[Rfam]
RNA: Small nucleolar RNA snoR26
RNA sequence: CCAGCAUCAAUGAUGUUAGUAUCCUUUUGUUAUCCUUGCACUUUGAUUGCCAGUGAAAAAAGCUAUGGGGAAAGUUGAGUCUGAGAUGCUG
Number, nucleotide and partner (000 for none) at each position: 001c000002c091003a090004g089005c088006a087007u086008c085009a000010a000011u000012g000013a000014u000015g000016u000017u000018a000019g000020u000021a000022u000023c000024c000025u000026u000027u000028u000029g000030u000031u000032a000033u000034c000035c000036u000037u000038g000039c000040a000041c000042u000043u000044u000045g000046a000047u000048u000049g000050c000051c000052a000053g000054u000055g000056a000057a000058a000059a000060a000061a000062g000063c000064u000065a000066u000067g000068g000069g000070g000071a000072a000073a000074g000075u000076u000077g000078a000079g000080u000081c000082u000083g000084a000085g008086a007087u006088g005089c004090u003091g002